[Rfam]
RNA sequence: UCAUCAUCACCAUCAUCCUGAGUAGUCUUUCGGGAGAUGUACGCAUACCCGGGAGACACACUCCCGGAGGUUGAGUCAAACGCAUCAAGAUUUGAACCCUCGGGAGCUAACACUUCCGGGGGUUUUUUAGU
Numbered sequence: 001u002c003a004u005c006a007u008c009a010c011c012a013u014c015a016u017c018c019u020g021a022g023u024a025g026u027c028u029u030u031c032g033g034g035a036g037a038u039g040u041a042c043g044c045a046u047a048c049c050c051g052g053g054a055g056a057c058a059c060a061c062u063c064c065c066g067g068a069g070g071u072u073g074a075g076u077c078a079a080a081c082g083c084a085u086c087a088a089g090a091u092u093u094g095a096a097c098c099c100u101c102g103g104g105a106g107c108u109a110a111c112a113c114u115u116c117c118g119g120g121g122g123u124u125u126u127u128u129a130g131u
Stems, first nucleotide, its partner, number of pairs: 009046001011039004017034005048067002051065005094125013

Shown here is a 131-nucleotide sequence from Vibrio sediminis, a member of the family "Histidine operon leader". Rfam describes the family as follows. At least 6 amino acid operons are known to be regulated by attenuation. Rfam classes the family as a cis-regulatory leader. For this family Rfam cites "Attenuation in amino acid biosynthetic operons" (Kolter and Yanofsky, Annu Rev Genet, 1982). The base pairs follow the family's consensus structure, which is taken from published work. Taxonomically the source falls in Vibrio (Bacteria, Pseudomonadota, Gammaproteobacteria, Vibrionaceae).